The record is a 145-nucleotide RNA from Alcaligenes sp. EGD-AK7, which matches "FMN riboswitch aptamer (RFN element)" in Rfam. Taxonomically the source falls in Alcaligenes (Bacteria, Pseudomonadati, Pseudomonadota, Alcaligenaceae). The family's consensus secondary structure is taken from published work. It scores 116 bits against the family's covariance model.
RNA sequence: AAACGUCUUCAGGGCGGGGUGAAAUUCCCCACCGGCGGUAAGGGAGCCAUUCCCCAGCCCGCGAGCGCUUUCCGCCAGGGAAAGGUCAGCAGAUCAGGUGAGAAACCUGGGCCGACGGUCAGAGUCCGGAUGAAAGAAGAUGAAG
Numbered sequence: 001a002a003a004c005g006u007c008u009u010c011a012g013g014g015c016g017g018g019g020u021g022a023a024a025u026u027c028c029c030c031a032c033c034g035g036c037g038g039u040a041a042g043g044g045a046g047c048c049a050u051u052c053c054c055c056a057g058c059c060c061g062c063g064a065g066c067g068c069u070u071u072c073c074g075c076c077a078g079g080g081a082a083a084g085g086u087c088a089g090c091a092g093a094u095c096a097g098g099u100g101a102g103a104a105a106c107c108u109g110g111g112c113c114g115a116c117g118g119u120c121a122g123a124g125u126c127c128g129g130a131u132g133a134a135a136g137a138a139g140a141u142g143a144a145g
Base pairs, nucleotide, nucleotide: 004142005141006140007139008138009137010136017029018028019027031125032124033114034113035062036061037060038059057112058111065090066089094110095109096108097107098106116128117127118126